[Rfam]
Rfam assigns this 135-nucleotide RNA from Microbacterium esteraromaticum to the family "ALIL pseudoknot". By type it is a cis-regulatory element. It scores 51 bits against the family's covariance model. Gene Ontology term of the family: positive regulation of translational frameshifting. The family's consensus secondary structure is taken from published work.

RNA sequence: GGCGUCUUUCUUCGGGGCGGAGCUCGACCGCCAACACCGGAAAUAGUCGCGUUCAUCGACGCGAACAAGAACGACGUCAUCGAGGGUCGCCCGCUUGGAGUCGAGCCCAUCUGCGACCUCUUGCAGAUAGCUCCG
Numbered sequence: 001g002g003c004g005u006c007u008u009u010c011u012u013c014g015g016g017g018c019g020g021a022g023c024u025c026g027a028c029c030g031c032c033a034a035c036a037c038c039g040g041a042a043a044u045a046g047u048c049g050c051g052u053u054c055a056u057c058g059a060c061g062c063g064a065a066c067a068a069g070a071a072c073g074a075c076g077u078c079a080u081c082g083a084g085g086g087u088c089g090c091c092c093g094c095u096u097g098g099a100g101u102c103g104a105g106c107c108c109a110u111c112u113g114c115g116a117c118c119u120c121u122u123g124c125a126g127a128u129a130g131c132u133c134c135g
Base pairs, nucleotide, nucleotide: 016032017031018030019029020028096135097134098133099132100131107130110127111126112125113124114123115122116121